[Rfam]
RNA sequence: AAAUUAUGAUGAGGAGGAUGGAUAUAUUCUAAUUUUAUUUUUUUUUUUAAUAAUCUCAUCCAACUCAUUCUGA
Numbered sequence: 001a002a003a004u005u006a007u008g009a010u011g012a013g014g015a016g017g018a019u020g021g022a023u024a025u026a027u028u029c030u031a032a033u034u035u036u037a038u039u040u041u042u043u044u045u046u047u048u049a050a051u052a053a054u055c056u057c058a059u060c061c062a063a064c065u066c067a068u069u070c071u072g073a
Stems, first nucleotide, its partner, number of pairs: 006068004030049002
The record is a 73-nucleotide RNA from Merops nubicus, which matches "Small nucleolar RNA Z105" in Rfam. Rfam links the family to the GO terms RNA processing and nucleolus. Pairs were carried over by alignment from the consensus structure, which was predicted with CMfinder. The family's RNA type in Rfam is C/D-box small nucleolar RNA.